[Rfam]
RNA sequence: AGAGCCAGCCAAACAGUCGCUCAACGGUAGUUGGGAGGAAAGUCCGGGCUCCAUCGGGCAGAGUGCCAGGUAACCCCUGGGAGGCGCGAGCCUACGGAAAGUGCAACAGAAAGAAUACCGCUGCCGUCAGGCAGUAAGGGUGAAAUGGUGUGGUAAGAGCACACCGCGUUGGUGGUAACAUUAACGGCGAUGGUAAACCCCACUCGGAGCAAGGCCAAAUAGGAAUCCUGAUUGUGUGGCCCACACAGUGGAUUCGGGUAGGCUGCUUGAGGUACAUGGUGACAUGUAUCCCAGAUAGAUGACUGUUCAUGACAGAACCCGGCUUAUCGGCUGGCUCUCCAA
Numbered sequence: 001a002g003a004g005c006c007a008g009c010c011a012a013a014c015a016g017u018c019g020c021u022c023a024a025c026g027g028u029a030g031u032u033g034g035g036a037g038g039a040a041a042g043u044c045c046g047g048g049c050u051c052c053a054u055c056g057g058g059c060a061g062a063g064u065g066c067c068a069g070g071u072a073a074c075c076c077c078u079g080g081g082a083g084g085c086g087c088g089a090g091c092c093u094a095c096g097g098a099a100a101g102u103g104c105a106a107c108a109g110a111a112a113g114a115a116u117a118c119c120g121c122u123g124c125c126g127u128c129a130g131g132c133a134g135u136a137a138g139g140g141u142g143a144a145a146u147g148g149u150g151u152g153g154u155a156a157g158a159g160c161a162c163a164c165c166g167c168g169u170u171g172g173u174g175g176u177a178a179c180a181u182u183a184a185c186g187g188c189g190a191u192g193g194u195a196a197a198c199c200c201c202a203c204u205c206g207g208a209g210c211a212a213g214g215c216c217a218a219a220u221a222g223g224a225a226u227c228c229u230g231a232u233u234g235u236g237u238g239g240c241c242c243a244c245a246c247a248g249u250g251g252a253u254u255c256g257g258g259u260a261g262g263c264u265g266c267u268u269g270a271g272g273u274a275c276a277u278g279g280u281g282a283c284a285u286g287u288a289u290c291c292c293a294g295a296u297a298g299a300u301g302a303c304u305g306u307u308c309a310u311g312a313c314a315g316a317a318c319c320c321g322g323c324u325u326a327u328c329g330g331c332u333g334g335c336u337c338u339c340c341a342a
Base pairs, nucleotide, nucleotide: 001338002337003336004335005334006333007332008331009330010329011327012307013306014305015304016303017302018301020035021034022033023032024031025030040325041324042323044322045321046320047319048318049209050208051207052206057242058241061205062204063203064202065201066080067079068078069077070076081095082093083092084091085090096200097199101198102197103194104193118139119138120135121134122133123132124131125130147165148164149163150162151161152160166188167186168185169184170183171182172181173180174179213264214263215262216261223255224254225253226252227251228250235247236246237245238244271290272289273288274287275286276285277284278283